[Rfam]
This 170-nucleotide RNA from Catenovulum maritimum belongs to the Rfam family "Group II catalytic intron D1-D4-3". From the family's description: Group II introns are found in rRNA, tRNA and mRNA of organelles in fungi, plants and protists, and also in mRNA in bacteria. Lineage of the source: Bacteria > Pseudomonadota > Alteromonadales > Alteromonadaceae > Catenovulum. On this family, see Chu et al., EMBO J 2001: "Control of branch-site choice by a group II intron".
Nucleotides: 170
Base pairs, nucleotide, nucleotide: 001017002016003015004014005013006012033170034169037166042157043156044155045154046153047152050148051147052146065145066144067143069141074137075136076135078133079132080131081130082129083128084127085113086112087111088110091106092105093104094103
Number, partner (000 for none) and nucleotide at each position: 001017u002016a003015g004014u005013u006012g007000g008000c009000c010000a011000a012006c013005g014004a015003c016002u017001g018000g019000g020000u021000c022000u023000g024000a025000a026000g027000g028000a029000a030000g031000c032000g033170a034169u035000a036000g037166g038000a039000a040000g041000u042157u043156a044155a045154c046153a047152g048000u049000a050148c051147a052146c053000a054000a055000c056000g057000u058000a059000a060000g061000u062000g063000a064000a065145c066144c067143u068000g069141a070000u071000u072000c073000g074137g075136c076135g077000u078133u079132u080131u081130a082129g083128g084127u085113g086112g087111g088110u089000a090000a091106g092105c093104g094103u095000g096000c097000a098000a099000a100000a101000u102000a103094g104093c105092g106091c107000a108000a109000a110088g111087c112086c113085c114000u115000a116000u117000a118000c119000u120000c121000a122000a123000u124000c125000a126000a127084a128083c129082c130081u131080a132079a133078a134000g135076c136075g137074u138000g139000c140000u141069u142000g143067a144066g145065g146052g147051u148050g149000g150000c151000a152047u153046u154045g155044u156043u157042a158000a159000c160000a161000g162000g163000g164000c165000g166037u167000c168000a169034g170033u